[Rfam]
RNA: Alphaproteobacteria transfer-messenger RNA
RNA sequence: CCCCUUCUCCUGCGGGGACGGAUCGCCUAUAUUCCAUCCUGCCAGCGACGGUUGGCUAUGGCGAUAAACGAAGUGCGGAAUAAGCCUUUCGGACCCGGGGGCGGUACCCGGCGCCUCCACCCAAGCGGCCUGCUCCUUCCUUGCGGGGAGCCGGCCGUUUCGGCGGGGGCGAAAUAGGAUCGACGAGGGUGUAAAGGCAUUUUUUUCGCUCGGCAUGGUUCCGCCGAUAUCGGGCCACCUUUGUAGUUGCGAAUGACAACUAUGCCGAGGCACGUCUCGCUGCGUAAGCGGCGCGACACCUCAAAUUAAGUCCUCCUACCGCAAGUAGGAGGCGGGGUCGGGAGGCACCUGGCAACAGAAGCCCCCACU
Numbered sequence: 001c002c003c004c005u006u007c008u009c010c011u012g013c014g015g016g017g018a019c020g021g022a023u024c025g026c027c028u029a030u031a032u033u034c035c036a037u038c039c040u041g042c043c044a045g046c047g048a049c050g051g052u053u054g055g056c057u058a059u060g061g062c063g064a065u066a067a068a069c070g071a072a073g074u075g076c077g078g079a080a081u082a083a084g085c086c087u088u089u090c091g092g093a094c095c096c097g098g099g100g101g102c103g104g105u106a107c108c109c110g111g112c113g114c115c116u117c118c119a120c121c122c123a124a125g126c127g128g129c130c131u132g133c134u135c136c137u138u139c140c141u142u143g144c145g146g147g148g149a150g151c152c153g154g155c156c157g158u159u160u161c162g163g164c165g166g167g168g169g170c171g172a173a174a175u176a177g178g179a180u181c182g183a184c185g186a187g188g189g190u191g192u193a194a195a196g197g198c199a200u201u202u203u204u205u206u207c208g209c210u211c212g213g214c215a216u217g218g219u220u221c222c223g224c225c226g227a228u229a230u231c232g233g234g235c236c237a238c239c240u241u242u243g244u245a246g247u248u249g250c251g252a253a254u255g256a257c258a259a260c261u262a263u264g265c266c267g268a269g270g271c272a273c274g275u276c277u278c279g280c281u282g283c284g285u286a287a288g289c290g291g292c293g294c295g296a297c298a299c300c301u302c303a304a305a306u307u308a309a310g311u312c313c314u315c316c317u318a319c320c321g322c323a324a325g326u327a328g329g330a331g332g333c334g335g336g337g338u339c340g341g342g343a344g345g346c347a348c349c350u351g352g353c354a355a356c357a358g359a360a361g362c363c364c365c366c367a368c369u
Stems, first nucleotide, its partner, number of pairs: 041056005060210005070203007085189003089186003095111005112171007211226004216237003220234003335350004341366002344363003